[Rfam]
RNA: ffh sRNA
RNA sequence: GAGGCCGGAGGUCAACGCCCGGCAGCGCGAUGCGCCCCCGGGCGAGUUCGUC
Numbered sequence: 001g002a003g004g005c006c007g008g009a010g011g012u013c014a015a016c017g018c019c020c021g022g023c024a025g026c027g028c029g030a031u032g033c034g035c036c037c038c039c040g041g042g043c044g045a046g047u048u049c050g051u052c
Stems, first nucleotide, its partner, number of pairs: 016044007025035004